Nucleotides: 136
Stems, first nucleotide, its partner, number of pairs: 002061005008054001010052002013049003019046004024041004029036001067133001069131008083119002086116002091110005
Number, partner (000 for none) and nucleotide at each position: 001000c002061c003060u004059g005058c006057c007000a008054c009000c010052a011051g012000a013049g014048g015047c016000g017000u018000u019046g020045c021044g022043a023000a024041g025040g026039u027038g028000g029036c030000u031000g032000c033000u034000g035000u036029g037000g038027c039026a040025c041024c042000u043022u044021u045020g046019u047015g048014u049013c050000a051011u052010u053000a054008g055000g056000u057006g058005g059004c060003a061002g062000a063000g064000a065000g066000c067133g068000a069131c070130a071129g072128g073127c074126u075125g076124u077000g078000u079000u080000c081000u082000a083119c084118g085000c086116u087115c088000g089000u090000u091110u092109g093108c094107u095106c096000c097000c098000a099000a100000a101000g102000c103000c104000g105000u106095g107094a108093g109092c110091a111000u112000u113000c114000a115087g116086a117000g118084u119083g120000a121000u122000u123000g124076a125075u126074g127073g128072c129071c130070u131069g132000a133067c134000a135000u136000g

Shown here is a 136-nucleotide RNA from Strigops habroptila, a member of the family "Small nucleolar RNA SNORA17". A search with the family's covariance model found it, with a score of 79 bits. Gene Ontology terms of the family: nucleolus and RNA processing. The family is grouped with related families in Rfam's "SNORA17 clan". The family's RNA type in Rfam is H/ACA-box small nucleolar RNA. snoRNA ACA 17 belongs to the H/ACA family of snoRNAs and is predicted to guide pseudouridylation of the 28S rRNA at positions U4659 and U4598. It shares the same host gene together with ACA43. NB This family has a high threshold value to exclude a large number of closely related sequences that do not appear to have conserved H and ACA boxes, and may be pseudogenes. Taxonomically the source falls in Strigops (Eukaryota, Archelosauria, Dinosauria, Neognathae).